[Rfam]
RNA sequence: GAGAGUAGGUGUAGGCGGUUACAGAAUGGUGUAAACACCAUUUUGAGGAAAGUCCGGGCUUCCUAAAGACCUGACUUGCUGGAUAACUCCCAGUGCGAGUGAUCGUGAGGAUAGUGCCACAGAAAAAUACCGCCUCUAAAUUUUAGAUUUCAAAUUGCAAAUUUUAGAUUUUAGAAUCAAUCGAAAGUCCAAAAUUUAAAAUUUGAAAUCCUUAGGGGUAAGGGUGCAAAGGUGUGGUAAGAGCACACCAGCAGUAUCGAGAGGUACUGGCUAGGUAAACCCCGGUUGGAAGCAAGGUCACAGGAGUGAUGGUUGGUCUUUUACCGACUCCGCUAAAUUAGAGCCGCUAGAGGUGUUUGGUAACAAACAUCCCAGAUAGAUAACCGCCCUCAUGAGUUAAUUGCUCAUGAGAACAGAACCCGGCUUACUACCAACUCUCUCUC
Numbered sequence: 001g002a003g004a005g006u007a008g009g010u011g012u013a014g015g016c017g018g019u020u021a022c023a024g025a026a027u028g029g030u031g032u033a034a035a036c037a038c039c040a041u042u043u044u045g046a047g048g049a050a051a052g053u054c055c056g057g058g059c060u061u062c063c064u065a066a067a068g069a070c071c072u073g074a075c076u077u078g079c080u081g082g083a084u085a086a087c088u089c090c091c092a093g094u095g096c097g098a099g100u101g102a103u104c105g106u107g108a109g110g111a112u113a114g115u116g117c118c119a120c121a122g123a124a125a126a127a128u129a130c131c132g133c134c135u136c137u138a139a140a141u142u143u144u145a146g147a148u149u150u151c152a153a154a155u156u157g158c159a160a161a162u163u164u165u166a167g168a169u170u171u172u173a174g175a176a177u178c179a180a181u182c183g184a185a186a187g188u189c190c191a192a193a194a195u196u197u198a199a200a201a202u203u204u205g206a207a208a209u210c211c212u213u214a215g216g217g218g219u220a221a222g223g224g225u226g227c228a229a230a231g232g233u234g235u236g237g238u239a240a241g242a243g244c245a246c247a248c249c250a251g252c253a254g255u256a257u258c259g260a261g262a263g264g265u266a267c268u269g270g271c272u273a274g275g276u277a278a279a280c281c282c283c284g285g286u287u288g289g290a291a292g293c294a295a296g297g298u299c300a301c302a303g304g305a306g307u308g309a310u311g312g313u314u315g316g317u318c319u320u321u322u323a324c325c326g327a328c329u330c331c332g333c334u335a336a337a338u339u340a341g342a343g344c345c346g347c348u349a350g351a352g353g354u355g356u357u358u359g360g361u362a363a364c365a366a367a368c369a370u371c372c373c374a375g376a377u378a379g380a381u382a383a384c385c386g387c388c389c390u391c392a393u394g395a396g397u398u399a400a401u402u403g404c405u406c407a408u409g410a411g412a413a414c415a416g417a418a419c420c421c422g423g424c425u426u427a428c429u430a431c432c433a434a435c436u437c438u439c440u441c442u443c
Base pairs, nucleotide, nucleotide: 001439002438003437004436005435006434008432009431010430011428014388015387016386017385018384019383020382022045023044024043025042026041027040028039029038030037050426051425052424054423055422056421057420058419059292060291061290062289068322069321073287074286075285077284078283079093080092081091082090094108095106096105097104098103109282110281114280115279116276117275118274130223131222132219133218134217135216136215137214138213139212231249232248233247234246235245236244251271252269253268254267255266256265257264258263296345297344298343299341305334306333307332308331313327314326315325316324317323352371353370354369355368356367357366358365359364
Shown here is a 443-nucleotide sequence from Richelia intracellularis, a member of the family "Bacterial RNase P class A". The family's consensus secondary structure is taken from published work. Ribonuclease P (RNase P) is a ubiquitous endoribonuclease, found in archaea, bacteria and eukarya as well as chloroplasts and mitochondria. It scores 250 bits against the family's covariance model. By type it is a ribozyme.